[Rfam]
About this RNA:
A member of the RNA family "Bacterial RNase P class B" from Bacillus sp. 1NLA3E, 390 nucleotides long. Rfam describes the family as follows. Ribonuclease P (RNase P) is a ubiquitous endoribonuclease, found in archaea, bacteria and eukarya as well as chloroplasts and mitochondria. Its best characterised activity is the generation of mature 5'-ends of tRNAs by cleaving the 5'-leader elements of precursor-tRNAs. It is annotated as a ribozyme.
RNA sequence: ACGUUCGGGUAAUCGCUGCAAGAAGCUUUUGCUACUUGUAGAGGAAAGUCCAUGCUCGCACGAGCUGAGAUGCUCGUAGUGUUCGUGCCUAGCCAAUUCAUAAGCUAGGGCAGUCGAGAGGCUGACGGCAGGGAAAAUGCCUAAGUCCGUUAAGGAUAUGGCAUGAAUACCUUUAAAGUGCCACAGUGACGUAGCCUCUUCAGAAAUGGAGAGGGUGGAACGAGGUAAACCCCACGAGCGAGAAACCCAAAUAAUGGUAGGGGCACUUUCUCUGAGGAAUUGAACAAGGAGAAGGACAGGUUGAUUUUCAAUCUGUAGAUAGAUGGUUACCACCGGAGUACGAGACUUUGGUCGUUUGCAGUACGAAGGAACAGAACAUGGCUUACAGAA
Numbered sequence: 001a002c003g004u005u006c007g008g009g010u011a012a013u014c015g016c017u018g019c020a021a022g023a024a025g026c027u028u029u030u031g032c033u034a035c036u037u038g039u040a041g042a043g044g045a046a047a048g049u050c051c052a053u054g055c056u057c058g059c060a061c062g063a064g065c066u067g068a069g070a071u072g073c074u075c076g077u078a079g080u081g082u083u084c085g086u087g088c089c090u091a092g093c094c095a096a097u098u099c100a101u102a103a104g105c106u107a108g109g110g111c112a113g114u115c116g117a118g119a120g121g122c123u124g125a126c127g128g129c130a131g132g133g134a135a136a137a138u139g140c141c142u143a144a145g146u147c148c149g150u151u152a153a154g155g156a157u158a159u160g161g162c163a164u165g166a167a168u169a170c171c172u173u174u175a176a177a178g179u180g181c182c183a184c185a186g187u188g189a190c191g192u193a194g195c196c197u198c199u200u201c202a203g204a205a206a207u208g209g210a211g212a213g214g215g216u217g218g219a220a221c222g223a224g225g226u227a228a229a230c231c232c233c234a235c236g237a238g239c240g241a242g243a244a245a246c247c248c249a250a251a252u253a254a255u256g257g258u259a260g261g262g263g264c265a266c267u268u269u270c271u272c273u274g275a276g277g278a279a280u281u282g283a284a285c286a287a288g289g290a291g292a293a294g295g296a297c298a299g300g301u302u303g304a305u306u307u308u309c310a311a312u313c314u315g316u317a318g319a320u321a322g323a324u325g326g327u328u329a330c331c332a333c334c335g336g337a338g339u340a341c342g343a344g345a346c347u348u349u350g351g352u353c354g355u356u357u358g359c360a361g362u363a364c365g366a367a368g369g370a371a372c373a374g375a376a377c378a379u380g381g382c383u384u385a386c387a388g389a390a
Stems, first nucleotide, its partner, number of pairs: 004390003007386001008331007016041006046384003050381005055242005060077006083237005088109006110126001111124005127232002130172003138163004145157003178230002180226003195214008246262003266295007296316008333369002338364004